[Rfam]
RNA sequence: GGGAGGUUGGUGGUGGACGUUCCACUCGCCAACCGGGUCAGGUCCGGAAGGAAGCAGCCCUAACGAGAAUCGGGCGGGUUACCGUCCAGCCUCCCACC
Numbered sequence: 001g002g003g004a005g006g007u008u009g010g011u012g013g014u015g016g017a018c019g020u021u022c023c024a025c026u027c028g029c030c031a032a033c034c035g036g037g038u039c040a041g042g043u044c045c046g047g048a049a050g051g052a053a054g055c056a057g058c059c060c061u062a063a064c065g066a067g068a069a070u071c072g073g074g075c076g077g078g079u080u081a082c083c084g085u086c087c088a089g090c091c092u093c094c095c096a097c098c
Stems, first nucleotide, its partner, number of pairs: 004092005010085006018076005025067004035060004043052003
Shown here is a 98-nucleotide RNA sequence from Alsobacter metallidurans, a member of the family "Bacterial small signal recognition particle RNA". Rfam classes the family as a non-coding RNA gene. From the family's description: The signal recognition particle (SRP) is a universally conserved ribonucleoprotein involved in the co-translational targeting of proteins to membranes.